[Rfam]
RNA: ZMP/ZTP riboswitch aptamer (pfl RNA motif)
Organism: Fusobacterium necrogenes
RNA sequence: AAAUAGUUAUAUAACUGACGGAGAAAAAGUGGAUAACCACGUGGAGUAUAACUUUAAGAUUUAGCCGACCGUCUGGGCACUAAGC
Numbered sequence: 001a002a003a004u005a006g007u008u009a010u011a012u013a014a015c016u017g018a019c020g021g022a023g024a025a026a027a028a029g030u031g032g033a034u035a036a037c038c039a040c041g042u043g044g045a046g047u048a049u050a051a052c053u054u055u056a057a058g059a060u061u062u063a064g065c066c067g068a069c070c071g072u073c074u075g076g077g078c079a080c081u082a083a084g085c
Stems, first nucleotide, its partner, number of pairs: 003055001005053008015043001017073005029040004064078003